[Rfam]
RNA: c-di-AMP riboswitch aptamer (ydaO/yuaA leader)
Organism: Geodermatophilus sp. Leaf369
RNA sequence: UGGGCAGACCCGCCUAAUCGUCGCCUGACCUCUGCGGGUCAGUCGGCGGGCCGGGGACCCAUGUGUUCCUGGGGUGAAUCUGCCACCGCGCAGUAGGGCUCCUUCCAGCCCGAACCCGUCAGCUAACUCGGUCGGUGGAAGGAAGAACGGAG
Numbered sequence: 001u002g003g004g005c006a007g008a009c010c011c012g013c014c015u016a017a018u019c020g021u022c023g024c025c026u027g028a029c030c031u032c033u034g035c036g037g038g039u040c041a042g043u044c045g046g047c048g049g050g051c052c053g054g055g056g057a058c059c060c061a062u063g064u065g066u067u068c069c070u071g072g073g074g075u076g077a078a079u080c081u082g083c084c085a086c087c088g089c090g091c092a093g094u095a096g097g098g099c100u101c102c103u104u105c106c107a108g109c110c111c112g113a114a115c116c117c118g119u120c121a122g123c124u125a126a127c128u129c130g131g132u133c134g135g136u137g138g139a140a141g142g143a144a145g146a147a148c149g150g151a152g
Base pairs, nucleotide, nucleotide: 011137012136013135014134018049019048020047021046022045023044050132051131052130053129054128055127060071061070072117073116074115080093081092082091083090096111097110098109099108